[Rfam]
RNA sequence: GAGGCGGAAACCGAAAAGCCUUAAGAGUAGGGA
Numbered sequence: 001g002a003g004g005c006g007g008a009a010a011c012c013g014a015a016a017a018g019c020c021u022u023a024a025g026a027g028u029a030g031g032g033a
Stems, first nucleotide, its partner, number of pairs: 002021004011031002